[Rfam]
RNA sequence: CUCUGAUCAUAGUAAACCCAUUGGAAAAUGGGGGCACAAAGCCACAGGUCCCACGUUCACCGAACCGGACAGCUGGGCUACCGGA
Numbered sequence: 001c002u003c004u005g006a007u008c009a010u011a012g013u014a015a016a017c018c019c020a021u022u023g024g025a026a027a028a029u030g031g032g033g034g035c036a037c038a039a040a041g042c043c044a045c046a047g048g049u050c051c052c053a054c055g056u057u058c059a060c061c062g063a064a065c066c067g068g069a070c071a072g073c074u075g076g077g078c079u080a081c082c083g084g085a
Stems, first nucleotide, its partner, number of pairs: 012037002017032006040079004045075003048070003055065004
Dot-bracket structure: ...........((...((((((....))))))...))..((((.((((((....((((...))))..)))..)))))))......
RNA: c-di-GMP-I riboswitch aptamer
Organism: Geomonas silvestris